[Rfam]
RNA sequence: UGGGGACGGCAGGCUCCCCGCUGCAUCAGACGGCUUUCGUCCAAGCUCUGC
Numbered sequence: 001u002g003g004g005g006a007c008g009g010c011a012g013g014c015u016c017c018c019c020g021c022u023g024c025a026u027c028a029g030a031c032g033g034c035u036u037u038c039g040u041c042c043a044a045g046c047u048c049u050g051c
Stems, first nucleotide, its partner, number of pairs: 001020006009051005029041005
Shown here is a 51-nucleotide RNA, a member of the family "chrB-b RNA". The family's RNA type in Rfam is cis-regulatory element.